[Rfam]
RNA sequence: UGUCGAAGUUCCAUCUACAAAUGGAUAAGACUUUGGUCUUAGUCUAAGUCUAGGCGAGUUUUUGAUUAGAAAGGAGCAAUAACCAACACUCUUUAUAGAAAAAUAAAUUGGUUAUUGUUCCUUUAU
Number, nucleotide and partner (000 for none) at each position: 001u000002g000003u000004c000005g000006a000007a000008g000009u000010u025011c024012c023013a022014u021015c000016u000017a000018c000019a000020a000021a014022u013023g012024g011025a010026u000027a000028a000029g000030a000031c000032u000033u000034u000035g000036g000037u000038c000039u000040u000041a000042g000043u000044c000045u000046a000047a000048g000049u000050c000051u000052a000053g000054g000055c000056g000057a000058g000059u000060u000061u000062u000063u000064g000065a000066u000067u000068a000069g000070a124071a123072a122073g121074g120075a119076g118077c117078a116079a115080u114081a113082a112083c000084c110085a109086a108087c000088a000089c000090u105091c000092u103093u102094u000095a000096u000097a000098g000099a000100a000101a000102a093103a092104u000105a090106a000107a000108u086109u085110g084111g000112u082113u081114a080115u079116u078117g077118u076119u075120c074121c073122u072123u071124u070125a000126u000
RNA: Plastid-psbA-1 3UTR RNA
Organism: Corymbia torelliana